[Rfam]
RNA sequence: GGUCAAUGAUGUGAUGGCAUGUAUUAGCUGAAUACAAAGUUGAUGUGUAUCAGCAAGCUCUAGAAUUACGCUGAGACCUU
Numbered sequence: 001g002g003u004c005a006a007u008g009a010u011g012u013g014a015u016g017g018c019a020u021g022u023a024u025u026a027g028c029u030g031a032a033u034a035c036a037a038a039g040u041u042g043a044u045g046u047g048u049a050u051c052a053g054c055a056a057g058c059u060c061u062a063g064a065a066u067u068a069c070g071c072u073g074a075g076a077c078c079u080u
Stems, first nucleotide, its partner, number of pairs: 001078004
Shown here is an 80-nucleotide RNA from Orycteropus afer, a member of the family "Small nucleolar RNA SNORD45". The match comes from Rfam's covariance-model search (89 bits). Pairs were carried over by alignment from the consensus structure, which was predicted with PFOLD. Rfam links the family to the GO terms nucleolus and RNA processing. NCBI's taxonomy places the organism under Eukaryota, Craniata, Vertebrata, Tubulidentata, Orycteropus afer. By type it is a C/D-box small nucleolar RNA.